[Rfam]
RNA sequence: CCAAAGGCUCUUUUCAGAGCCACCCACAACGUCGAGAAAGAGCUUG
Numbered sequence: 001c002c003a004a005a006g007g008c009u010c011u012u013u014u015c016a017g018a019g020c021c022a023c024c025c026a027c028a029a030c031g032u033c034g035a036g037a038a039a040g041a042g043c044u045u046g
Base pairs, nucleotide, nucleotide: 006021007020008019009018010017011016
Dot-bracket structure: .....((((((....)))))).........................